[Rfam]
RNA: U5 spliceosomal RNA
Organism: Drosophila grimshawi
RNA sequence: CUACUCUGGCUUCUCUUCAGUUGUCGAAUAAAUCUUUCGCCUUUUACUAAAGAUUUCCGUGGAGAGGAGCACUCUAAUGAGUCUAAAAUAAUUUUUUGCAGUGCCUGAUUCCCAUCGGGCCA
Dot-bracket structure: ..((((..(((((((((((..........((((((((...........))))))))...)))))))))))........))))....................(((((........)))))..